[Rfam]
RNA sequence: GCAAAUUCCGAGGGGAGCACCUGUACGGUGCUGAGAUGGCGGUGAGCCGGACCCUUGAACCUGAUCCGGGUCAUGCCGGCGUAGGAACGGAAAAUCGCUCGCAA
Numbered sequence: 001g002c003a004a005a006u007u008c009c010g011a012g013g014g015g016a017g018c019a020c021c022u023g024u025a026c027g028g029u030g031c032u033g034a035g036a037u038g039g040c041g042g043u044g045a046g047c048c049g050g051a052c053c054c055u056u057g058a059a060c061c062u063g064a065u066c067c068g069g070g071u072c073a074u075g076c077c078g079g080c081g082u083a084g085g086a087a088c089g090g091a092a093a094a095u096c097g098c099u100c101g102c103a104a
Base pairs, nucleotide, nucleotide: 006092007091008090009089010088011055012054013053014052017031018030019029020028021027038048039047040046060085061084062083063082066079067078068077069076
RNA: TPP riboswitch aptamer (THI element)
Organism: Rhizobium sp. Root149